Shown here is a 320-nucleotide sequence from Methyloradius palustris, a member of the family "Bacterial RNase P class A". Gene Ontology terms of the family: dimeric ribonuclease P complex, ribonuclease P activity and tRNA processing.

RNA sequence: GAAGCUGGCUAGACAGUCGCCGCUUGCGUAAGCAGGGGGAGGAAAGUCCGGGCUGCAUAGAACGGGAUGACGGCUAACGGCCGUACGUUGAAAGCCGCAAGGUAUAAGGCGAGGAAUAGGGCCACAGAGACGAGCGUAUUUAGUUACGGUGAAACGCGGUAACCUCCAUCCGCAGCAAGACCAAAUAGGCUGGCAUUUUACGUAAGUAAUAAGGCGUGGUUCGCGCUGCCAGCGGGUAGGUUGCUCGAGCGUAUUGGCAACGAUACGCCUAGAUGAAUGACUGUCCACGACAGAACCCGGCUUAUCGGCCAGCUUCACUU
Number, nucleotide and partner (000 for none) at each position: 001g316002a315003a314004g313005c312006u311007g310008g309009c308010u307011a305012g285013a284014c283015a282016g281017u280018c279019g000020c039021c038022g000023c036024u035025u034026g033027c032028g000029u000030a000031a000032g027033c026034a025035g024036g023037g000038g021039g020040a000041g000042g000043a000044a303045a302046g301047u000048c300049c299050g298051g297052g296053c175054u174055g173056c172057a000058u000059a000060g222061a221062a220063c219064g000065g171066g170067a169068u168069g167070a084071c083072g082073g081074c080075u000076a000077a000078c000079g000080g074081c073082c072083g071084u070085a000086c111087g110088u109089u108090g000091a000092a000093a000094g000095c000096c000097g000098c000099a000100a000101g000102g000103u000104a000105u000106a000107a000108g089109g088110c087111g086112a000113g000114g166115a165116a000117u000118a000119g164120g163121g160122c159123c158124a000125c000126a000127g000128a000129g000130a000131c000132g000133a000134g000135c148136g147137u146138a145139u000140u000141u000142a000143g000144u000145u138146a137147c136148g135149g000150u000151g000152a000153a000154a000155c000156g000157c000158g123159g122160u121161a000162a000163c120164c119165u115166c114167c069168a068169u067170c066171c065172g056173c055174a054175g053176c000177a000178a000179g242180a241181c240182c239183a000184a000185a000186u000187a000188g000189g233190c232191u231192g230193g229194c228195a000196u000197u000198u000199u000200a000201c000202g000203u000204a000205a000206g000207u000208a000209a000210u000211a000212a000213g227214g226215c225216g224217u223218g000219g063220u062221u061222c060223g217224c216225g215226c214227u213228g194229c193230c192231a191232g190233c189234g000235g000236g000237u000238a000239g182240g181241u180242u179243g000244c000245u000246c000247g000248a000249g268250c267251g266252u265253a264254u263255u262256g261257g000258c000259a000260a000261c256262g255263a254264u253265a252266c251267g250268c249269c000270u000271a000272g000273a000274u000275g000276a000277a000278u000279g018280a017281c016282u015283g014284u013285c012286c000287a000288c000289g000290a000291c000292a000293g000294a000295a000296c052297c051298c050299g049300g048301c046302u045303u044304a000305u011306c000307g010308g009309c008310c007311a006312g005313c004314u003315u002316c001317a000318c000319u000320u000